RNA: U7 small nuclear RNA
RNA sequence: AAGUGUUACAGCUCUUUUACUAUUUGUCUAGCAGGUUCGUACUCUGUAGGAGCCACA
Numbered sequence: 001a002a003g004u005g006u007u008a009c010a011g012c013u014c015u016u017u018u019a020c021u022a023u024u025u026g027u028c029u030a031g032c033a034g035g036u037u038c039g040u041a042c043u044c045u046g047u048a049g050g051a052g053c054c055a056c057a
Stems, first nucleotide, its partner, number of pairs: 034054005040048003